[Rfam]
RNA: FMN riboswitch aptamer (RFN element)
Organism: Tritonibacter multivorans
RNA sequence: GUGUAUUCUCAGGGCAGGGUGCAAUUCCCUACCGGUGGUCACAGCCCACGAGCGGCCUGCGGUGCAGGUGACAGCAGACCCGGCGCAAUUCCGGGGCCGACGGUUAAAGUCCGGAUGGAAGAGAAUGGGU
Numbered sequence: 001g002u003g004u005a006u007u008c009u010c011a012g013g014g015c016a017g018g019g020u021g022c023a024a025u026u027c028c029c030u031a032c033c034g035g036u037g038g039u040c041a042c043a044g045c046c047c048a049c050g051a052g053c054g055g056c057c058u059g060c061g062g063u064g065c066a067g068g069u070g071a072c073a074g075c076a077g078a079c080c081c082g083g084c085g086c087a088a089u090u091c092c093g094g095g096g097c098c099g100a101c102g103g104u105u106a107a108a109g110u111c112c113g114g115a116u117g118g119a120a121g122a123g124a125a126u127g128g129g130u
Stems, first nucleotide, its partner, number of pairs: 004127007017029003031110002033099002035049004044097002052075002079095005101113003
Dot-bracket structure: ...(((((((......(((.......))).[[((((((.....[[))))..((....................))...(((((.......)))))]])).(((.....]]))).......)))))))...